[Rfam]
RNA sequence: AAAUCACGGUUGAAACAAGAUUUGUCAUGAGAAGUCAGCCGAGGCCAUAGUACCCGAUGAAGUCUACGUCACCGGGGAAGGGC
Number, nucleotide and partner (000 for none) at each position: 001a022002a021003a000004u020005c019006a000007c000008g016009g000010u014011u000012g000013a000014a010015a000016c008017a000018a000019g005020a004021u002022u001023u000024g000025u000026c000027a000028u000029g000030a000031g000032a000033a000034g000035u042036c041037a000038g000039c000040c000041g036042a035043g000044g083045c082046c081047a000048u000049a000050g000051u000052a000053c076054c075055c074056g073057a000058u071059g070060a069061a000062g000063u000064c000065u000066a000067c000068g000069u060070c059071a058072c000073c056074g055075g054076g053077g000078a000079a000080g000081g046082g045083c044
RNA: Group II catalytic intron D1-D4-1
Organism: Desulfoscipio gibsoniae